[Rfam]
RNA: Mason-Pfizer monkey virus packaging signal
RNA sequence: UGGCGCCGCGUGGGAACCUGGGAAGCGAGGACUCCGUGAGAAGAAGGGCGUAAAGGGCCGGUCGACCGCUAGCUUAGACAAAGGAGUAAAACUCUUCCGAUCUCCACCGGGGUCUGCAGUCUGAAUGAAGGUAAGUGGCGUCGAAAUGGACAAGAAUUAAGUCAGCAUCAGAUCUAUGUAGAGACAAUUAAAGAGGCUUUAAAGAUACGAGGAGUAAAGGUUAAAGGUAAUGAUUUGUUUUAAAUUUUUGAUUUUGUAAAGAUACUUGCCCUU
Dot-bracket structure: .....((..((.............))..))...((.(.......).))..........................................(((.((....((....(.(.......).)...))..)).))).....(..(((...))).)......((((((...............................))).)))......((((((.(..((((((.......))))))......).)))))).......((.(.(....).).))